[Rfam]
The family of this 36-nucleotide sequence from Kordia algicida is "DUF805b RNA". The sequence is in the family's curated seed alignment. By type it is a cis-regulatory element.

RNA sequence: AAGGUGUAAUCCGAAAAACCUUUAACAGAGUAGGAA
Number, nucleotide and partner (000 for none) at each position: 001a000002a021003g020004g019005u018006g000007u000008a000009a000010u035011c034012c033013g000014a000015a000016a000017a000018a005019c004020c003021u002022u000023u000024a000025a000026c000027a000028g000029a000030g000031u000032a000033g012034g011035a010036a000